[Rfam]
RNA sequence: AAUCUAUUGUAAACUCCCCGUAAACCGAGACCUCUAGGGAGUCUAAAUCACGUCUCUAAUAUCCGAGCCGGAGGGUGGCACGGAAAUACUAAUAACU
Numbered sequence: 001a002a003u004c005u006a007u008u009g010u011a012a013a014c015u016c017c018c019c020g021u022a023a024a025c026c027g028a029g030a031c032c033u034c035u036a037g038g039g040a041g042u043c044u045a046a047a048u049c050a051c052g053u054c055u056c057u058a059a060u061a062u063c064c065g066a067g068c069c070g071g072a073g074g075g076u077g078g079c080a081c082g083g084a085a086a087u088a089c090u091a092a093u094a095a096c097u
Stems, first nucleotide, its partner, number of pairs: 014041005020035001027056005062084004067079002

This 97-nucleotide RNA from Tamkungvirus ST4 belongs to the Rfam family "PhotoRC-II RNA". It is annotated as a cis-regulatory element. The source organism's lineage runs through Viruses, Heunggongvirae, Pantevenvirales, Kyanoviridae and Tamkungvirus ST4.